Rfam assigns this 267-nucleotide sequence from Paenibacillus psychroresistens to the family "Bacterial large signal recognition particle RNA". Rfam's curators write: The signal recognition particle (SRP) is a universally conserved ribonucleoprotein involved in the co-translational targeting of proteins to membranes.
RNA sequence: CCGUGCUAGAUGGGGAGGUAGCGGUGCCCUGUAACCCGCAACCCGCUGUAGCGGGGUUGAAUUCCUGUUAGAGGUCUUGUCGAUGUAAGGUCUGCUGCUUAGAGGAAGUGUUGACAGCAAGGUCCUUCGCAAUGAAUGCUUGUGAACCCGGUCAGGUUCGGAAGGAAGCAGCCGUAAGUGAGAUGUUUCAUGUGCCGAAGGGUGGCCUAGCUAGAGCUAACGAUAAGCGUUACGCUUGGAUCGCAACGAUCAAUAUCAGGUGCACGG
Number, nucleotide and partner (000 for none) at each position: 001c267002c266003g265004u264005g263006c262007u000008a000009g058010a057011u056012g030013g029014g028015g027016a000017g025018g000019u023020a000021g000022c000023g019024g000025u017026g000027c015028c014029c013030u012031g000032u000033a000034a000035c055036c054037c053038g052039c051040a000041a000042c000043c000044c000045g000046c000047u000048g000049u000050a000051g039052c038053g037054g036055g035056g011057u010058u009059g000060a000061a000062u000063u000064c260065c259066u258067g257068u000069u255070a254071g000072a000073g251074g250075u249076c248077u000078u000079g000080u000081c243082g242083a241084u240085g000086u238087a237088a236089g235090g000091u000092c000093u232094g231095c000096u229097g228098c227099u226100u225101a224102g000103a000104g221105g000106a000107a218108g217109u216110g000111u000112u000113g000114a000115c000116a212117g211118c210119a000120a208121g207122g206123u205124c201125c200126u199127u198128c197129g196130c192131a191132a000133u190134g189135a188136a187137u000138g000139c182140u181141u180142g179143u178144g000145a000146a000147c000148c000149c174150g173151g172152u171153c000154a000155g000156g000157u166158u165159c164160g000161g000162a000163a000164g159165g158166a157167a000168g000169c000170a000171g152172c151173c150174g149175u000176a000177a000178g143179u142180g141181a140182g139183a000184u000185g000186u000187u136188u135189c134190a133191u131192g130193u000194g000195c000196c129197g128198a127199a126200g125201g124202g000203u000204g000205g123206c122207c121208u120209a000210g118211c117212u116213a000214g000215a000216g109217c108218u107219a000220a000221c104222g000223a000224u101225a100226a099227g098228c097229g096230u000231u094232a093233c000234g000235c089236u088237u087238g086239g000240a084241u083242c082243g081244c000245a000246a000247c000248g076249a075250u074251c073252a000253a000254u070255a069256u000257c067258a066259g065260g064261u000262g006263c005264a004265c003266g002267g001

A reference for the family is Rosenblad et al. (2003), "SRPDB: Signal Recognition Particle Database", Nucleic Acids Res.